[Rfam]
RNA: Molybdenum/Tungsten riboswitch aptamer (Moco RNA motif)
Organism: Pelotomaculum isophthalicicum
RNA sequence: AUGAUGAUUACUCUCCGAGCCAUAUGACCUAAAGCUUUUAAGCCAUGGUUUUCGGCCGGUAGGGUGUACCGGGAAACCGGUAUGUCUCCCAUUGCGAAAAGGAGAGUUCUUGAUCCGGCU
Numbered sequence: 001a002u003g004a005u006g007a008u009u010a011c012u013c014u015c016c017g018a019g020c021c022a023u024a025u026g027a028c029c030u031a032a033a034g035c036u037u038u039u040a041a042g043c044c045a046u047g048g049u050u051u052u053c054g055g056c057c058g059g060u061a062g063g064g065u066g067u068a069c070c071g072g073g074a075a076a077c078c079g080g081u082a083u084g085u086c087u088c089c090c091a092u093u094g095c096g097a098a099a100a101g102g103a104g105a106g107u108u109c110u111u112g113a114u115c116c117g118g119c120u
Base pairs, nucleotide, nucleotide: 003114006111011106012105013104014103015102016101019056020055021054024052026050027049028048029047034043035042036041062087063086064085065084066083067082068081069080070079071078072077089096